[Rfam]
RNA: NiCo (Nickel/Cobalt) riboswitch aptamer
RNA sequence: CCAUCCCAUUCUGAACAGGCCGUGGCAAUACCAUGGAGCCGGGCCGGCCCAGCCGGCAGCGGAGCGUUUGCACGUUGGCGCGCCCGCGGGACAGAA
Numbered sequence: 001c002c003a004u005c006c007c008a009u010u011c012u013g014a015a016c017a018g019g020c021c022g023u024g025g026c027a028a029u030a031c032c033a034u035g036g037a038g039c040c041g042g043g044c045c046g047g048c049c050c051a052g053c054c055g056g057c058a059g060c061g062g063a064g065c066g067u068u069u070g071c072a073c074g075u076u077g078g079c080g081c082g083c084c085c086g087c088g089g090g091a092c093a094g095a096a
Stems, first nucleotide, its partner, number of pairs: 010095004016090001018040003022034004043057005059087004